[Rfam]
RNA sequence: GUGUGAUAAUGAAAACCUGACUCUAAACUCUUCAGGAGACGAGCGGGUUGGAUGCUUCCACAC
Numbered sequence: 001g002u003g004u005g006a007u008a009a010u011g012a013a014a015a016c017c018u019g020a021c022u023c024u025a026a027a028c029u030c031u032u033c034a035g036g037a038g039a040c041g042a043g044c045g046g047g048u049u050g051g052a053u054g055c056u057u058c059c060a061c062a063c
Stems, first nucleotide, its partner, number of pairs: 001063005014049006021043003029039003
RNA: Selenocysteine insertion sequence 1